[Rfam]
RNA sequence: UUGAGGACACCGUUAUGGGUCCUACAGAGUCGAUUUAUUUUUUAAAAAAUCAAUAUGACCGCUUGGAUCCAGAGGACCGAGACGGGAGU
Numbered sequence: 001u002u003g004a005g006g007a008c009a010c011c012g013u014u015a016u017g018g019g020u021c022c023u024a025c026a027g028a029g030u031c032g033a034u035u036u037a038u039u040u041u042u043u044a045a046a047a048a049a050u051c052a053a054u055a056u057g058a059c060c061g062c063u064u065g066g067a068u069c070c071a072g073a074g075g076a077c078c079g080a081g082a083c084g085g086g087a088g089u
Stems, first nucleotide, its partner, number of pairs: 001027003004023005010018002059085003062081005068076003

The record is an 89-nucleotide RNA sequence from Carboxydothermus hydrogenoformans, which matches "pan motif" in Rfam. By type it is a cis-regulatory element. Rfam's curators put it in the seed alignment.